This 78-nucleotide RNA sequence from Streptococcus pyogenes belongs to the Rfam family "L17 ribosomal protein downstream element".

RNA sequence: UGAGUGUUAUGAUGAUGGAGUAAUCGAGAGAUUAUUCUUAGUCUAGCUCUGGUCUACCGCUAGGAUUUUUCCUAGCGG
Numbered sequence: 001u002g003a004g005u006g007u008u009a010u011g012a013u014g015a016u017g018g019a020g021u022a023a024u025c026g027a028g029a030g031a032u033u034a035u036u037c038u039u040a041g042u043c044u045a046g047c048u049c050u051g052g053u054c055u056a057c058c059g060c061u062a063g064g065a066u067u068u069u070u071c072c073u074a075g076c077g078g
Stems, first nucleotide, its partner, number of pairs: 002049004011043003017038008057078009